Annotation:
The family of this 50-nucleotide RNA from Pragia fontium is "L31-Gammaproteobacteria ribosomal protein leader". It is annotated as a cis-regulatory leader. The sequence is in the family's curated seed alignment. The base pairs follow the family's consensus structure, which is taken from published work.

RNA sequence: CGCGUGGUGUUCGGCAAUAGUGACCGUAUAGCGACGCGACAUAGAGAGGC
Numbered sequence: 001c002g003c004g005u006g007g008u009g010u011u012c013g014g015c016a017a018u019a020g021u022g023a024c025c026g027u028a029u030a031g032c033g034a035c036g037c038g039a040c041a042u043a044g045a046g047a048g049g050c
Stems, first nucleotide, its partner, number of pairs: 001038005007032002012026003015022001